[Rfam]
RNA: mir-129 microRNA precursor family
RNA sequence: UCGGGUCUUUUUGCGGUCUGGGCUUUCUGUCCCUGGCCCUGGCACUCAGGAAGCCCUUACCCCAAAAAGUAUCUG
Numbered sequence: 001u002c003g004g005g006u007c008u009u010u011u012u013g014c015g016g017u018c019u020g021g022g023c024u025u026u027c028u029g030u031c032c033c034u035g036g037c038c039c040u041g042g043c044a045c046u047c048a049g050g051a052a053g054c055c056c057u058u059a060c061c062c063c064a065a066a067a068a069g070u071a072u073c074u075g
Base pairs, nucleotide, nucleotide: 007069008068009067010066011065012064013063015061016060017059020056021055022054023053025051027049028048